[Rfam]
RNA sequence: AAGAAAUGGGGGCUCCUUUGAGGACAAAGAAGGCCUUUCGGAUCGUCUUUUCGCUCAUUGAAGCAGUCGUCCUUUGGACUGAAGGGGGUCCUUAGUUCUU
Numbered sequence: 001a002a003g004a005a006a007u008g009g010g011g012g013c014u015c016c017u018u019u020g021a022g023g024a025c026a027a028a029g030a031a032g033g034c035c036u037u038u039c040g041g042a043u044c045g046u047c048u049u050u051u052c053g054c055u056c057a058u059u060g061a062a063g064c065a066g067u068c069g070u071c072c073u074u075u076g077g078a079c080u081g082a083a084g085g086g087g088g089u090c091c092u093u094a095g096u097u098c099u100u
Base pairs, nucleotide, nucleotide: 007094008093009092010091011090012089013088014087015086016085017084018083022080023079025077027075028074029073
RNA: MIR319 microRNA precursor family
Organism: Amborella trichopoda